[Rfam]
RNA sequence: AGGAGGAACAACCCAGUGGCAGGGCCAGCUCUGGAGCCCUGGAGUCAGCCCCUGCAGUAACUCCGGAGCUCUCCAUCUGCAGGGCCUGGAGGAUCCGGCCGGGG
Numbered sequence: 001a002g003g004a005g006g007a008a009c010a011a012c013c014c015a016g017u018g019g020c021a022g023g024g025c026c027a028g029c030u031c032u033g034g035a036g037c038c039c040u041g042g043a044g045u046c047a048g049c050c051c052c053u054g055c056a057g058u059a060a061c062u063c064c065g066g067a068g069c070u071c072u073c074c075a076u077c078u079g080c081a082g083g084g085c086c087u088g089g090a091g092g093a094u095c096c097g098g099c100c101g102g103g104g
Stems, first nucleotide, its partner, number of pairs: 002096003009088002012084003018077002022073003027070009039057003